RNA sequence: GAGUCUACCACGUAUGCGAGUCACUGCGCCGCGAGACGCACGGGCGAAAGAAACCUGACAACACGGCGUUUACGCCUGCACCGGUCGCACCGAUGUUACGCCCCCCGGGUCUAAGGAUGGGGUGUGUACUAGCGGAUCCGGUGGGAGCAUGCGUGUUAGGACCCGAAAGGUGGUGAUCUAUGCCUGGGCAGGGUGAAGCCUGGGGAAAUCCAGGUGGAGGCCCGAAGGAAUGCUGACGUGCAAAUCGCUUCUCUGACCUGGGUAUAGUGGCGAAAGACCAAUCGAACCACCUAGUAGCUGGUU
Numbered sequence: 001g002a003g004u005c006u007a008c009c010a011c012g013u014a015u016g017c018g019a020g021u022c023a024c025u026g027c028g029c030c031g032c033g034a035g036a037c038g039c040a041c042g043g044g045c046g047a048a049a050g051a052a053a054c055c056u057g058a059c060a061a062c063a064c065g066g067c068g069u070u071u072a073c074g075c076c077u078g079c080a081c082c083g084g085u086c087g088c089a090c091c092g093a094u095g096u097u098a099c100g101c102c103c104c105c106c107g108g109g110u111c112u113a114a115g116g117a118u119g120g121g122g123u124g125u126g127u128a129c130u131a132g133c134g135g136a137u138c139c140g141g142u143g144g145g146a147g148c149a150u151g152c153g154u155g156u157u158a159g160g161a162c163c164c165g166a167a168a169g170g171u172g173g174u175g176a177u178c179u180a181u182g183c184c185u186g187g188g189c190a191g192g193g194u195g196a197a198g199c200c201u202g203g204g205g206a207a208a209u210c211c212a213g214g215u216g217g218a219g220g221c222c223c224g225a226a227g228g229a230a231u232g233c234u235g236a237c238g239u240g241c242a243a244a245u246c247g248c249u250u251c252u253c254u255g256a257c258c259u260g261g262g263u264a265u266a267g268u269g270g271c272g273a274a275a276g277a278c279c280a281a282u283c284g285a286a287c288c289a290c291c292u293a294g295u296a297g298c299u300g301g302u303u
Base pairs, nucleotide, nucleotide: 005159006158007157009155010154011153012152013151014150015149016148017147020045021044022043025040026039027038028037030035049056050055064078067074068073080142081141082140083139084138085136086135092129162301163300165298169291170290171289172288173287174286178267179266180265181264182263183262184261185260186259187258188257189255191223192222193221194220198215199214200213201212202211203210204209227252228251229250230249232248233247235246236245269279270278
Rfam assigns this 303-nucleotide part of an RNA from Lotharella oceanica to the family "Eukaryotic large subunit ribosomal RNA". Pairs were carried over by alignment from the consensus structure, which is taken from published work. Rfam links the family to the GO terms structural constituent of ribosome and ribosome. Rfam 15.1 lists 107,465 matches to the family in 2,616 species. It is one of the family's seed sequences. Taxonomically the source falls in Lotharella (Eukaryota, Sar, Rhizaria, Cercozoa).